[Rfam]
RNA sequence: CGCAGAGUAGAGACAUAAGCGUUAAGUGCCUUUUGAACAGGGAGUUGUCAUUAGGACGAAGGUUUAUCCGCGGUUUACGUCUCGCAUCCCGCUGCU
Numbered sequence: 001c002g003c004a005g006a007g008u009a010g011a012g013a014c015a016u017a018a019g020c021g022u023u024a025a026g027u028g029c030c031u032u033u034u035g036a037a038c039a040g041g042g043a044g045u046u047g048u049c050a051u052u053a054g055g056a057c058g059a060a061g062g063u064u065u066a067u068c069c070g071c072g073g074u075u076u077a078c079g080u081c082u083c084g085c086a087u088c089c090c091g092c093u094g095c096u
Base pairs, nucleotide, nucleotide: 002095003094004093005092010083011082012081013080014079016077017076018075019074020072021071022070026057027056029055030054031053034050035049036048040089041088042087044085061069062068
This 96-nucleotide RNA sequence from Butyrivibrio hungatei belongs to the Rfam family "THF (Tetrahydrofolate) riboswitch aptamer". The match comes from Rfam's covariance-model search (80 bits). The family has 101 seed sequences and 747 matches in Rfam 15.1. The family's consensus secondary structure is taken from published work. Tetrahydrofolate (THF) riboswitch was first reported for Ames et al. as an RNA motif in 5' untranslated (5'-UTR)regions of folate transport and biosynthesis genes in Firmicutes genomes.